[Rfam]
RNA sequence: UUAUACGUAGCGGGAGAUCUUCGACGCCGUUUCGUGGCGUACGGGGAGCCGAAGGAGCAAUGUCCUCCCGGGAAUCUCUCAGGCCCAGUACCGCUGCGUUCAG
Numbered sequence: 001u002u003a004u005a006c007g008u009a010g011c012g013g014g015a016g017a018u019c020u021u022c023g024a025c026g027c028c029g030u031u032u033c034g035u036g037g038c039g040u041a042c043g044g045g046g047a048g049c050c051g052a053a054g055g056a057g058c059a060a061u062g063u064c065c066u067c068c069c070g071g072g073a074a075u076c077u078c079u080c081a082g083g084c085c086c087a088g089u090a091c092c093g094c095u096g097c098g099u100u101c102a103g
Stems, first nucleotide, its partner, number of pairs: 006098008020046003048084003051080002055078003061071001

Glycine riboswitch aptamer: a 103-nucleotide sequence from Mycolicibacterium sp. P9-64. NCBI's taxonomy places the organism under Bacteria, Actinomycetota, Mycobacteriales, Mycobacterium, Mycobacterium (subgen. Mycolicibacterium). Pairs were carried over by alignment from the consensus structure. Gene Ontology term of the family: glycine biosynthetic process. It scores 50 bits against the family's covariance model.